Shown here is a 266-nucleotide RNA sequence from Cryoendolithus antarcticus, a member of the family "Fungal signal recognition particle RNA". The base pairs follow the family's consensus structure, which is taken from published work. Its Rfam clan is "SRP clan". It is annotated as a non-coding RNA gene. It scores 110 bits against the family's covariance model. Lineage of the source: Eukaryota > Fungi > Dikarya > Cladosporiales > Cryoendolithus.

RNA sequence: AAGCUGUAAUGGCUCAACGGGCGGAAUUUCCUCUCGCCCCCACCUUCCCUUCACAAUCCCAAGGGCGUGUGUCCAGUUCGAACUCUGUGGUGGCCGUCCACUCGCUUCGGUAACGAGCGAUUGUUGCGCACGGCCUUGAGCUGCUGCAAUAAACUUCAGCCGAGCAAUCGGGCAGAGAGUUGCAGGCCAUGGAGUGGCGGCGUUGGAUUACUCACGUCUUUGGCGGGAACGGAUGGGGGUGGUUGAUGAGGUGUAUGACGCUUUUU
Dot-bracket structure: .(((.......)))....(((((...(.((((((((((((((.((...((.........(..(((((((.((((((((((.(((((((((.(.((((.(.((((((.((....))))))).....).).)))).)(...)...((((((....(((....(((....)))....)))..)))))).)))))))))..))).)))))...)).)))))))...)..))...)).))))))....))).)))).).)...)))))...